[Rfam]
RNA sequence: UGGAGAGCAGAGAUACCUCUGGAGAAGCGCGUGACCUGACCCCAGCAGGAGAACCCAACCCGCUUUUCCACCUAGGUGUCUCUCUCUCUC
Numbered sequence: 001u002g003g004a005g006a007g008c009a010g011a012g013a014u015a016c017c018u019c020u021g022g023a024g025a026a027g028c029g030c031g032u033g034a035c036c037u038g039a040c041c042c043c044a045g046c047a048g049g050a051g052a053a054c055c056c057a058a059c060c061c062g063c064u065u066u067u068c069c070a071c072c073u074a075g076g077u078g079u080c081u082c083u084c085u086c087u088c089u090c
Stems, first nucleotide, its partner, number of pairs: 002089006009083010020070010031059002035049004
mir-967 microRNA precursor family: a 90-nucleotide sequence from Drosophila melanogaster. The base pairs follow the family's consensus structure, which was predicted with RNAalifold. Rfam links the family to the GO terms miRNA-mediated post-transcriptional gene silencing and RISC complex. It is one of the family's seed sequences.